A member of the RNA family "mir-5429 microRNA precursor family" from Anolis carolinensis, 83 nucleotides long. Its family is annotated with miRNA-mediated post-transcriptional gene silencing and RISC complex in the Gene Ontology. The source organism's lineage runs through Eukaryota, Squamata, Bifurcata, Anolidae and Anolis.
RNA sequence: CUGGGAAUCUCUAGACCCUCCAGCAGAACUCUUAUGGGGGAAAUUGAUCACGGAGUCCUACUGGAGGACUUAGAGAUUUCUGG
Numbered sequence: 001c002u003g004g005g006a007a008u009c010u011c012u013a014g015a016c017c018c019u020c021c022a023g024c025a026g027a028a029c030u031c032u033u034a035u036g037g038g039g040g041a042a043a044u045u046g047a048u049c050a051c052g053g054a055g056u057c058c059u060a061c062u063g064g065a066g067g068a069c070u071u072a073g074a075g076a077u078u079u080c081u082g083g
Stems, first nucleotide, its partner, number of pairs: 001083014017067007025059002028056005036051001038049002